[Rfam]
Nucleotides: 162
Base pairs, nucleotide, nucleotide: 014061015060016059017058018057019056063084064083065082067080068079069078070077071076103156104155105154106153107152108151109150110149111148112147113146114145116135117134118133119132120131121130
Number, partner (000 for none) and nucleotide at each position: 001000a002000c003000a004000c005000g006000a007000g008000a009000a010000a011000g012000g013000a014061g015060g016059u017058g018057g019056u020000c021000c022000a023000c024000a025000a026000a027000u028000a029000a030000u031000g032000c033000a034000u035000u036000c037000u038000u039000u040000g041000a042000g043000g044000a045000c046000u047000c048000g049000u050000g051000a052000g053000g054000u055000g056019g057018u058017u059016g060015c061014c062000g063084g064083u065082u066000a067080g068079g069078c070077a071076g072000c073000u074000u075000g076071c077070u078069g079068c080067c081000g082065g083064a084063c085000a086000a087000u088000c089000u090000a091000c092000g093000g094000c095000a096000g097000c098000c099000a100000c101000c102000g103156c104155g105154g106153c107152c108151c109150g110149u111148g112147g113146g114145g115000g116135u117134c118133g119132a120131g121130c122000c123000c124000a125000g126000u127000c128000c129000a130121g131120c132119u133118c134117g135116a136000c137000g138000a139000c140000a141000u142000c143000a144000a145114c146113c147112c148111c149110a150109c151108g152107g153106g154105c155104c156103g157000u158000u159000u160000c161000u162000c